[Rfam]
RNA: Flavobacterium-1 RNA
RNA sequence: CCGAGAUAGGGGUACAAAUCUUGCCACUGGCAUUUCCCUGGACCCAAGCGAUGAUGGGCAACCUAGCGACGACUCUCGGCGUUCUUCGGGAGAGAGUACUAGACGUAGUGUCUCCCAGAACG
Numbered sequence: 001c002c003g004a005g006a007u008a009g010g011g012g013u014a015c016a017a018a019u020c021u022u023g024c025c026a027c028u029g030g031c032a033u034u035u036c037c038c039u040g041g042a043c044c045c046a047a048g049c050g051a052u053g054a055u056g057g058g059c060a061a062c063c064u065a066g067c068g069a070c071g072a073c074u075c076u077c078g079g080c081g082u083u084c085u086u087c088g089g090g091a092g093a094g095a096g097u098a099c100u101a102g103a104c105g106u107a108g109u110g111u112c113u114c115c116c117a118g119a120a121c122g
Base pairs, nucleotide, nucleotide: 001079002078003077004076005075006074007072009070010045011044012043013042015040016039022032023031024030025029048067049066056063057062083122085120086119087118088116089115090114091113092112093111099108100107101106